Annotation: This 123-nucleotide RNA belongs to the Rfam family "Hepatitis C virus J7880 RNA".
[Rfam]
RNA sequence: AUUAAGGCGAAGGCGUCCACAGUGAAGGCCAGGCUACUCUCAGUGGAGGAAGCUUGCAGCCUGACGCCCCCGCACUCGGCUAAAUCCAAGUUCGGGUACGGGGCGAAGGACGUCCGGAGCCUA
Number, nucleotide and partner (000 for none) at each position: 001a000002u000003u000004a000005a000006g120007g000008c000009g000010a000011a000012g114013g113014c112015g111016u110017c109018c108019a000020c000021a000022g065023u064024g000025a062026a000027g000028g057029c056030c000031a000032g053033g000034c000035u050036a000037c048038u047039c046040u000041c000042a000043g000044u000045g000046g039047a038048g037049g000050a035051a000052g000053c032054u000055u000056g029057c028058a000059g000060c000061c000062u025063g000064a023065c022066g000067c000068c103069c102070c101071c100072g000073c000074a097075c096076u095077c094078g092079g091080c090081u000082a000083a000084a000085u000086c000087c000088a000089a000090g080091u079092u078093c000094g077095g076096g075097u074098a000099c000100g071101g070102g069103g068104c000105g000106a000107a000108g018109g017110a016111c015112g014113u013114c012115c000116g000117g000118a000119g000120c006121c000122u000123a000
It is one of the family's seed sequences.